[Rfam]
Small nucleolar RNA snR48: a 109-nucleotide RNA from Waltiozyma mucosa. Lineage of the source: Eukaryota > Saccharomycotina > Saccharomycetes > Wickerhamomycetaceae > Waltiozyma. The family is grouped with related families in Rfam's "SNORD60 clan". Gene Ontology terms of the family: nucleolus and RNA processing. Pairs were carried over by alignment from the consensus structure, which was predicted with ILM. For this family Rfam cites "A computational screen for methylation guide snoRNAs in yeast" (Lowe and Eddy, Science, 1999).

RNA sequence: UUUUAAUGAUGAUCCCCUUAUUAAGUAUGUUUUUUCUGGCAUCUCUAAUGUUAGGGCUCUGUUUAACUACUAGUUCGAUGAAUACAACCUUUUGACUAUAUAUCUGAUA
Numbered sequence: 001u002u003u004u005a006a007u008g009a010u011g012a013u014c015c016c017c018u019u020a021u022u023a024a025g026u027a028u029g030u031u032u033u034u035u036c037u038g039g040c041a042u043c044u045c046u047a048a049u050g051u052u053a054g055g056g057c058u059c060u061g062u063u064u065a066a067c068u069a070c071u072a073g074u075u076c077g078a079u080g081a082a083u084a085c086a087a088c089c090u091u092u093u094g095a096c097u098a099u100a101u102a103u104c105u106g107a108u109a
Stems, first nucleotide, its partner, number of pairs: 055075004